[Rfam]
RNA sequence: UAUGAUAUGGUGAUGAUACAAGUGUAAUAUGUGGACUAGAGUUUCAGAUCUGGGAUUCUUCUCCCAGUAGUUGAAGAUUAACCCUUGGCUGUCUGAGUAUCAUC
Numbered sequence: 001u002a003u004g005a006u007a008u009g010g011u012g013a014u015g016a017u018a019c020a021a022g023u024g025u026a027a028u029a030u031g032u033g034g035a036c037u038a039g040a041g042u043u044u045c046a047g048a049u050c051u052g053g054g055a056u057u058c059u060u061c062u063c064c065c066a067g068u069a070g071u072u073g074a075a076g077a078u079u080a081a082c083c084c085u086u087g088g089c090u091g092u093c094u095g096a097g098u099a100u101c102a103u104c
Stems, first nucleotide, its partner, number of pairs: 002103007042076004049069001050067005